A member of the RNA family "FMN riboswitch aptamer (RFN element)" from Microlunatus sagamiharensis, 141 nucleotides long.
RNA sequence: GCGCGUGUUCCGGGGUCGGUGAAAGUCCGAGCCGGCGGUGACAGUCCGCGACCCGUACGCCGCUCCGUCAGGAGCAGCGUCCGGUUGAUGUGGUGAAACUCCACGACCGACGGUGAGAGUCCGGAUGGGAGGACCACGCCG
Dot-bracket structure: ..((((((((......(((.......))).[[((((((.....[[))))...((............................))....(((((.......)))))]])).(((.....]]))).......))).)))))..
Numbered sequence: 001g002c003g004c005g006u007g008u009u010c011c012g013g014g015g016u017c018g019g020u021g022a023a024a025g026u027c028c029g030a031g032c033c034g035g036c037g038g039u040g041a042c043a044g045u046c047c048g049c050g051a052c053c054c055g056u057a058c059g060c061c062g063c064u065c066c067g068u069c070a071g072g073a074g075c076a077g078c079g080u081c082c083g084g085u086u087g088a089u090g091u092g093g094u095g096a097a098a099c100u101c102c103a104c105g106a107c108c109g110a111c112g113g114u115g116a117g118a119g120u121c122c123g124g125a126u127g128g129g130a131g132g133a134c135c136a137c138g139c140c141g
Stems, first nucleotide, its partner, number of pairs: 003139005008133003017029003031120002033109002035049004044107002053084002089105005111123003

The family's consensus secondary structure is taken from published work.